[Rfam]
RNA sequence: AACUUUUGACAAGGCAAGAUGUCGGCAUAGCUGAUUGUUUUUCUAUUCGGCUGUGUCUCAUCAAGCCAACUUAAUUUUUC
Numbered sequence: 001a002a003c004u005u006u007u008g009a010c011a012a013g014g015c016a017a018g019a020u021g022u023c024g025g026c027a028u029a030g031c032u033g034a035u036u037g038u039u040u041u042u043c044u045a046u047u048c049g050g051c052u053g054u055g056u057c058u059c060a061u062c063a064a065g066c067c068a069a070c071u072u073a074a075u076u077u078u079u080c
Stems, first nucleotide, its partner, number of pairs: 006074004013067003018062004024057008

The family of this 80-nucleotide RNA from Psylliodes chrysocephalus is "mir-31 microRNA precursor family". The family is grouped with related families in Rfam's "mir-31 microRNA precursor family". Its family is annotated with gene silencing by miRNA and RISC complex in the Gene Ontology. The organism belongs to Psylliodes, within Eukaryota. It scores 60 bits against the family's covariance model.